[Rfam]
RNA sequence: UUAUAUCGACGCGGUUCACCUCCUCCCGAGCCGCCACGAUCAGACGGACAGCACUCCUCGUCCCAGCUGUCGGUCACAUUCAAGAGCCCGGUGCACCUCCUCCCGCACCGGGCUUUUUUC
Numbered sequence: 001u002u003a004u005a006u007c008g009a010c011g012c013g014g015u016u017c018a019c020c021u022c023c024u025c026c027c028g029a030g031c032c033g034c035c036a037c038g039a040u041c042a043g044a045c046g047g048a049c050a051g052c053a054c055u056c057c058u059c060g061u062c063c064c065a066g067c068u069g070u071c072g073g074u075c076a077c078a079u080u081c082a083a084g085a086g087c088c089c090g091g092u093g094c095a096c097c098u099c100c101u102c103c104c105g106c107a108c109c110g111g112g113c114u115u116u117u118u119u120c
Stems, first nucleotide, its partner, number of pairs: 007038002011034007043075003047071006084115011
The record is a 120-nucleotide RNA sequence from Pararhizobium polonicum, which matches "Alphaproteobacterial ar14" in Rfam. A search with the family's covariance model found it, with a score of 107 bits. Rfam's curators write: Smr14C2 was renamed NfeR1 (Nodule Formation Efficiency RNA) highly expressed in salt stress and during the symbiotic interaction on legume roots. Lineage of the source: Bacteria > Alphaproteobacteria > Hyphomicrobiales > Rhizobiaceae > Pararhizobium.